[Rfam]
RNA sequence: GUGGGCUGGGGAAGGGCUGCUGGGCGGUGGGGCCAUCGGGCCCAGCCUCAUACCAGCCAGCCCCACCCGUGCCCCAGAUCAACUCGCAGGCGGGCUCCGUGCGGGGCUCCCCUGAGCAGUAACAGGUGUGAGCAUCCACGCAGCGUUGGGAUGGUCAUGUAUGAUGCUGCACACAGCA
Numbered sequence: 001g002u003g004g005g006c007u008g009g010g011g012a013a014g015g016g017c018u019g020c021u022g023g024g025c026g027g028u029g030g031g032g033c034c035a036u037c038g039g040g041c042c043c044a045g046c047c048u049c050a051u052a053c054c055a056g057c058c059a060g061c062c063c064c065a066c067c068c069g070u071g072c073c074c075c076a077g078a079u080c081a082a083c084u085c086g087c088a089g090g091c092g093g094g095c096u097c098c099g100u101g102c103g104g105g106g107c108u109c110c111c112c113u114g115a116g117c118a119g120u121a122a123c124a125g126g127u128g129u130g131a132g133c134a135u136c137c138a139c140g141c142a143g144c145g146u147u148g149g150g151a152u153g154g155u156c157a158u159g160u161a162u163g164a165u166g167c168u169g170c171a172c173a174c175a176g177c178a
Base pairs, nucleotide, nucleotide: 003074004073005072006071008068009067010066015062016061017060018059019057020056021055022054024053026047027046028045030043032041033040034039087104090102091101092100113173114172116170117169118168119167120166121165123163124162129157130156131155133153134152135151136150139148140147
RNA: Small Cajal body specific RNA 16